Notes:
Shown here is a 70-nucleotide RNA sequence, a member of the family "S10-Clostridia ribosomal protein leader".

RNA sequence: AAAUGCGAUGAACCGGGAGAUUGCUCCGAAAGGAGGUAACUUCCGGGGAGUAUGUCCGAUAAUCGGGCGG
Numbered sequence: 001a002a003a004u005g006c007g008a009u010g011a012a013c014c015g016g017g018a019g020a021u022u023g024c025u026c027c028g029a030a031a032g033g034a035g036g037u038a039a040c041u042u043c044c045g046g047g048g049a050g051u052a053u054g055u056c057c058g059a060u061a062a063u064c065g066g067g068c069g070g
Stems, first nucleotide, its partner, number of pairs: 013046003017043003024035004053069006
The literature on the family includes a 2020 paper in BMC Microbiol by Eckert and Weinberg, "Discovery of 20 novel ribosomal leader candidates in bacteria and archaea".